[Rfam]
RNA sequence: ACACCUGAAUCUUUUCCAUUUUUUGUUGCUUUGUGCGGGUGUGGGGACAGACAUGCAACAUUAUGAGCAGUGGAAUUCUAGUAGGGUUGUUUUCCUUUUGUCUUGGGGCCUGACUCCAUAGGCCCCAACU
Numbered sequence: 001a002c003a004c005c006u007g008a009a010u011c012u013u014u015u016c017c018a019u020u021u022u023u024u025g026u027u028g029c030u031u032u033g034u035g036c037g038g039g040u041g042u043g044g045g046g047a048c049a050g051a052c053a054u055g056c057a058a059c060a061u062u063a064u065g066a067g068c069a070g071u072g073g074a075a076u077u078c079u080a081g082u083a084g085g086g087u088u089g090u091u092u093u094c095c096u097u098u099u100g101u102c103u104u105g106g107g108g109c110c111u112g113a114c115u116c117c118a119u120a121g122g123c124c125c126c127a128a129c130u
Base pairs, nucleotide, nucleotide: 002055003054013047014046015045016044017043018042019041021039022038067123068122080115081114082113084111085110086109087108094106095105

Rfam assigns this 130-nucleotide sequence from Canis lupus to the family "Small nucleolar RNA SNORA55".
By type it is an H/ACA-box small nucleolar RNA.
The family has 29 seed sequences and 1,476 matches in Rfam 15.1.
ACA55 is a member of the H/ACA class of snoRNA that guide the sites of modification of uridines to pseudouridines.
A search with the family's covariance model found it, with a score of 76 bits.